Rfam assigns this 175-nucleotide RNA sequence from Weizmannia acidilactici to the family "Group II catalytic intron D1-D4-3". Taxonomically the source falls in Heyndrickxia (Bacteria, Bacillati, Bacilli, Caryophanales). The pairing is the family consensus, mapped onto this sequence.
RNA sequence: UCCGUAGUGAUGCGGAAUCUGAAGGAAGCGAGCGGCAAACCUCCGAUUCUUGAGGAACACGAACCUCAUACAAGGCUAGGUAUCAUUGGAUGAGCUUGCCGAACAAAGUAAAGUCCAUACUGCCAAAGGUGAUACAGAGUAAAUGAGGCAGAUAGGUGGAGGGAAAGAGUGCAGU
Numbered sequence: 001u002c003c004g005u006a007g008u009g010a011u012g013c014g015g016a017a018u019c020u021g022a023a024g025g026a027a028g029c030g031a032g033c034g035g036c037a038a039a040c041c042u043c044c045g046a047u048u049c050u051u052g053a054g055g056a057a058c059a060c061g062a063a064c065c066u067c068a069u070a071c072a073a074g075g076c077u078a079g080g081u082a083u084c085a086u087u088g089g090a091u092g093a094g095c096u097u098g099c100c101g102a103a104c105a106a107a108g109u110a111a112a113g114u115c116c117a118u119a120c121u122g123c124c125a126a127a128g129g130u131g132a133u134a135c136a137g138a139g140u141a142a143a144u145g146a147g148g149c150a151g152a153u154a155g156g157u158g159g160a161g162g163g164a165a166a167g168a169g170u171g172c173a174g175u
Stems, first nucleotide, its partner, number of pairs: 001016006028175002036167001040162006046153002050151003064148006075140003080135006088116004094109004